[Rfam]
RNA: Small nucleolar RNA SNORD16
RNA sequence: UGCCAUGAUGGUGUAAUUUGCGUCUGACCCUGUGAACAGUGACAGUUGCCUGCUGUCUCUAAGCUGUCAUUGGGUAUUGAUGUGUCAUAAACUCUGAGCA
Numbered sequence: 001u002g003c004c005a006u007g008a009u010g011g012u013g014u015a016a017u018u019u020g021c022g023u024c025u026g027a028c029c030c031u032g033u034g035a036a037c038a039g040u041g042a043c044a045g046u047u048g049c050c051u052g053c054u055g056u057c058u059c060u061a062a063g064c065u066g067u068c069a070u071u072g073g074g075u076a077u078u079g080a081u082g083u084g085u086c087a088u089a090a091a092c093u094c095u096g097a098g099c100a
Stems, first nucleotide, its partner, number of pairs: 001100003021082004030072001032070003039064002041057005